[Rfam]
RNA sequence: GGCUUUGUAGUGUAAAUAACAUUUUGGAUUGCAAAUCCUUAGAUGCAAUUAGUUCAUUGCCAAAGCUU
Numbered sequence: 001g002g003c004u005u006u007g008u009a010g011u012g013u014a015a016a017u018a019a020c021a022u023u024u025u026g027g028a029u030u031g032c033a034a035a036u037c038c039u040u041a042g043a044u045g046c047a048a049u050u051a052g053u054u055c056a057u058u059g060c061c062a063a064a065g066c067u068u
Stems, first nucleotide, its partner, number of pairs: 001067007010022004026038003045060005
Record summary:
Shown here is a 68-nucleotide RNA, a member of the family "tRNA". By type it is a transfer RNA. The base pairs follow the family's consensus structure, which is taken from published work.